[Rfam]
RNA sequence: CGGAGGACUGAGAAGGUUGAACAGCUUGCACCAUGCUGUUGUAACAGGUUACGCCUCCAAGAGUAAUUAACAAACUGCACAUUUAUGUCACUCUGAUGGAAGCGGGGCUGAUGUGUGCGUUUG
Numbered sequence: 001c002g003g004a005g006g007a008c009u010g011a012g013a014a015g016g017u018u019g020a021a022c023a024g025c026u027u028g029c030a031c032c033a034u035g036c037u038g039u040u041g042u043a044a045c046a047g048g049u050u051a052c053g054c055c056u057c058c059a060a061g062a063g064u065a066a067u068u069a070a071c072a073a074a075c076u077g078c079a080c081a082u083u084u085a086u087g088u089c090a091c092u093c094u095g096a097u098g099g100a101a102g103c104g105g106g107g108c109u110g111a112u113g114u115g116u117g118c119g120u121u122u123g
Base pairs, nucleotide, nucleotide: 002058003057004056005055006054016045017044018043020040021039022038023037024036025035078115079114080113086110087109093105094104095103097101
Rfam assigns this 123-nucleotide RNA from Nothobranchius furzeri to the family "Small nucleolar RNA SNORA47". The base pairs follow the family's consensus structure, which was predicted with WAR. On this family, see Huttenhofer et al., EMBO J 2001: "RNomics: an experimental approach that identifies 201 candidates for novel, small, non-messenger RNAs in mouse". The family has 20 seed sequences and 733 matches in Rfam 15.1. Rfam classes the family as an H/ACA-box small nucleolar RNA.